[Rfam]
RNA sequence: CAAAAGGCCCUUUUAAGGGCCACCCACAUUAACAAAAAAAAGUGU
Numbered sequence: 001c002a003a004a005a006g007g008c009c010c011u012u013u014u015a016a017g018g019g020c021c022a023c024c025c026a027c028a029u030u031a032a033c034a035a036a037a038a039a040a041a042g043u044g045u
Stems, first nucleotide, its partner, number of pairs: 006021006